Overview: This 125-nucleotide RNA sequence from Morganella morganii belongs to the Rfam family "Histidine operon leader". The base pairs follow the family's consensus structure, which is taken from published work. By type it is a cis-regulatory leader. Taxonomically the source falls in Morganella morganii subsp. morganii (Bacteria, Gammaproteobacteria, Enterobacterales, Morganella morganii). It scores 99 bits against the family's covariance model. At least 6 amino acid operons are known to be regulated by attenuation.
RNA sequence: UCACCACCACCAUCACCCUGACUAGUCUUUCAGGCGAUUGGUGCCGGAAGACGUUCAGAGCUUCCGGUGGCAUGCGUGCUAAGAGAGAACCCCCGGAAGAAUCUUUUUUCCGGGGGUUUUUUUAU
Numbered sequence: 001u002c003a004c005c006a007c008c009a010c011c012a013u014c015a016c017c018c019u020g021a022c023u024a025g026u027c028u029u030u031c032a033g034g035c036g037a038u039u040g041g042u043g044c045c046g047g048a049a050g051a052c053g054u055u056c057a058g059a060g061c062u063u064c065c066g067g068u069g070g071c072a073u074g075c076g077u078g079c080u081a082a083g084a085g086a087g088a089a090c091c092c093c094c095g096g097a098a099g100a101a102u103c104u105u106u107u108u109u110c111c112g113g114g115g116g117u118u119u120u121u122u123u124a125u
Base pairs, nucleotide, nucleotide: 008043009042010041012038013037014036017034018033019032020031021030044067045066046065047064048063049062050061084122085121086120087119088118089117090116091115092114093113094112095111096110097109098108099107